mir-9242 microRNA precursor family: a 64-nucleotide sequence from Myotis brandtii. NCBI's taxonomy places the organism under Eukaryota, Eumetazoa, Chordata, Laurasiatheria, Myotis. Gene Ontology terms of the family: RISC complex and miRNA-mediated post-transcriptional gene silencing.
[Rfam]
RNA sequence: GGCCUCCCUCUGUGGGGCUAUUAAUUGCGGUGCUCCGUGAUCAAUUGCCCCGCAGAGGGAGGCC
Numbered sequence: 001g002g003c004c005u006c007c008c009u010c011u012g013u014g015g016g017g018c019u020a021u022u023a024a025u026u027g028c029g030g031u032g033c034u035c036c037g038u039g040a041u042c043a044a045u046u047g048c049c050c051c052g053c054a055g056a057g058g059g060a061g062g063c064c
Base pairs, nucleotide, nucleotide: 001064002063003062004061005060006059007058008057009056010055011054012053013052014051015050016049017048018047020045021044022043024041025040026039027038028037029036030035